[Rfam]
RNA sequence: UGGAUCAAUAUUGAGGACUAGUGGCACAUGAGUCAAGGAGGAACAAAAAUGCUGAUCUAGAACUCUGAGGUCCAA
Numbered sequence: 001u002g003g004a005u006c007a008a009u010a011u012u013g014a015g016g017a018c019u020a021g022u023g024g025c026a027c028a029u030g031a032g033u034c035a036a037g038g039a040g041g042a043a044c045a046a047a048a049a050u051g052c053u054g055a056u057c058u059a060g061a062a063c064u065c066u067g068a069g070g071u072c073c074a075a
Base pairs, nucleotide, nucleotide: 002073003072004071005070006069
About this RNA
Rfam assigns this 75-nucleotide sequence from Equus asinus to the family "Small nucleolar RNA SNORD113/SNORD114 family". Rfam describes the family as follows. The imprinted human domain at 14q32 contains two clusters of tandemly repeated small nucleolar RNAs named 14q(I) and 14q(II) snoRNAs. These two clusters are named SNORD113 and SNORD114 respectively in the HGNC approved gene symbol nomenclature. The snoRNAs found in both clusters are clearly related and are represented here by a single family. These snoRNAs are intron encoded and are processed from the tissue-specific non-coding human MEG8 RNA, which lies downstream of the imprinted genes DLK1 and GTL2. snoRNAs 14q(I) and 14q(II) differ from previously identified C/D box snoRNAs in their expression profiles and lack of complementarity to rRNA and snRNA. Homologues of these snoRNAs are found in the imprinted non-coding mouse transcript Rian, and in the rat non-coding Bsr (brain-specific repetitive) RNA. A reference for the family is Cavaille et al. (2002), "Identification of tandemly-repeated C/D snoRNA genes at the imprinted human 14q32 domain reminiscent of those at the Prader-Willi/Angelman syndrome region", Hum Mol Genet. The family's RNA type in Rfam is C/D-box small nucleolar RNA.